[Rfam]
RNA: Ribosomal protein L20 leader
Organism: Mesobacillus foraminis
RNA sequence: UGUGGAAAGAAGAAGCACCCGCUUCUCACCUGGUCGACGCAAAAAGCAGUUGGCAGGUAUUACGUAAACGACUAUUAAUUUGGUAUGGUUUCGUAAAGUGUGGGUGUAUAAGCCCACACUUUUUUAUUGCG
Numbered sequence: 001u002g003u004g005g006a007a008a009g010a011a012g013a014a015g016c017a018c019c020c021g022c023u024u025c026u027c028a029c030c031u032g033g034u035c036g037a038c039g040c041a042a043a044a045a046g047c048a049g050u051u052g053g054c055a056g057g058u059a060u061u062a063c064g065u066a067a068a069c070g071a072c073u074a075u076u077a078a079u080u081u082g083g084u085a086u087g088g089u090u091u092c093g094u095a096a097a098g099u100g101u102g103g104g105u106g107u108a109u110a111a112g113c114c115c116a117c118a119c120u121u122u123u124u125u126a127u128u129g130c131g
Base pairs, nucleotide, nucleotide: 011026012025013024014023015022016021028058029057030056036051037050038049039047040046099118100117101116102115103114104113105112